[Rfam]
RNA: Small nucleolar RNA SNORA1
RNA sequence: AGCCUCAUUUUAGAUGAAAAUGGGCACUGCUGUUAUUGGGGUCCAGAAAUUAACGUGACUACACUGAGAGAGACACAGUUUUGCUUCCAUCACAGUAAUCUUACUGCAGUGGUGAUAAUGUGACCUGUGACAUGU
Numbered sequence: 001a002g003c004c005u006c007a008u009u010u011u012a013g014a015u016g017a018a019a020a021u022g023g024g025c026a027c028u029g030c031u032g033u034u035a036u037u038g039g040g041g042u043c044c045a046g047a048a049a050u051u052a053a054c055g056u057g058a059c060u061a062c063a064c065u066g067a068g069a070g071a072g073a074c075a076c077a078g079u080u081u082u083g084c085u086u087c088c089a090u091c092a093c094a095g096u097a098a099u100c101u102u103a104c105u106g107c108a109g110u111g112g113u114g115a116u117a118a119u120g121u122g123a124c125c126u127g128u129g130a131c132a133u134g135u
Base pairs, nucleotide, nucleotide: 002059004057006055008053021045022044023043024042025041027039073128074127075126078124088114089113090112091111092110093109